[Rfam]
RNA sequence: AUUCUCUUAAGUGAGAAUAAUGCUUGGUUUGUGGUUCCAGGCUAGUCGUGAGCAAGGCCGAGAUCGCAGUCUUACUCGGUUGAGUGGUCUUGUUCAUUGAUGAACGUCCCACACUUU
Numbered sequence: 001a002u003u004c005u006c007u008u009a010a011g012u013g014a015g016a017a018u019a020a021u022g023c024u025u026g027g028u029u030u031g032u033g034g035u036u037c038c039a040g041g042c043u044a045g046u047c048g049u050g051a052g053c054a055a056g057g058c059c060g061a062g063a064u065c066g067c068a069g070u071c072u073u074a075c076u077c078g079g080u081u082g083a084g085u086g087g088u089c090u091u092g093u094u095c096a097u098u099g100a101u102g103a104a105c106g107u108c109c110c111a112c113a114c115u116u117u
Stems, first nucleotide, its partner, number of pairs: 001018006022042006031112004045101003048097003057089001058087003062081002068076003

A member of the RNA family "RAGATH-11 RNA" from Brachionus plicatilis, 117 nucleotides long. A search with the family's covariance model found it, with a score of 92 bits. The base pairs follow the family's consensus structure, which is taken from published work. The family has 10 seed sequences and 87 matches in Rfam 15.1. The organism belongs to Brachionus, within Eukaryota.